A member of the RNA family "c-di-GMP-I riboswitch aptamer" from Fictibacillus arsenicus, 86 nucleotides long.

RNA sequence: UCGACGAAAGGGCAAACUUUUCGAAAGGGAAGGACGCAAAGCUACAGGGGCUAAGUCUUUAAAAAGAUAUGCCAGCCAGUGCCGAA
Dot-bracket structure: ...........((...((((((....))))))...))..(.((...(((((....((((....))))...)))..)))))......